[Rfam]
RNA: glmS glucosamine-6-phosphate activated ribozyme aptamer
Organism: Asaccharospora irregularis
RNA sequence: UUCACUUUCUAAGCGCCAGAACUUGGUUAAUGACAAACAGUAAUUAAGUAAUAUUGUAACUAAGUUGACGAGGACAGAGUUAAUCGAAUUAUCGGCGGAUGCUCUGCGGUGCGUUUACCACCGAAGAACUUCUUCAAAUCAUAGGAGUGAUCUUAUGGACAAAGAGGAGUUUGAGUAAACUU
Numbered sequence: 001u002u003c004a005c006u007u008u009c010u011a012a013g014c015g016c017c018a019g020a021a022c023u024u025g026g027u028u029a030a031u032g033a034c035a036a037a038c039a040g041u042a043a044u045u046a047a048g049u050a051a052u053a054u055u056g057u058a059a060c061u062a063a064g065u066u067g068a069c070g071a072g073g074a075c076a077g078a079g080u081u082a083a084u085c086g087a088a089u090u091a092u093c094g095g096c097g098g099a100u101g102c103u104c105u106g107c108g109g110u111g112c113g114u115u116u117a118c119c120a121c122c123g124a125a126g127a128a129c130u131u132c133u134u135c136a137a138a139u140c141a142u143a144g145g146a147g148u149g150a151u152c153u154u155a156u157g158g159a160c161a162a163a164g165a166g167g168a169g170u171u172u173g174a175g176u177a178a179a180c181u182u
Stems, first nucleotide, its partner, number of pairs: 020066008029057001075106005084095004107123005126172007140157007